[Rfam]
RNA sequence: GCAGGUUCAAGGCCAUAGCAGAAGCACUCACAGCAUGGCCUGUCAGAUUCCAAUGAAUCUACAAAUUCUGCU
Numbered sequence: 001g002c003a004g005g006u007u008c009a010a011g012g013c014c015a016u017a018g019c020a021g022a023a024g025c026a027c028u029c030a031c032a033g034c035a036u037g038g039c040c041u042g043u044c045a046g047a048u049u050c051c052a053a054u055g056a057a058u059c060u061a062c063a064a065a066u067u068c069u070g071c072u
Stems, first nucleotide, its partner, number of pairs: 011040004017072007024036001045060006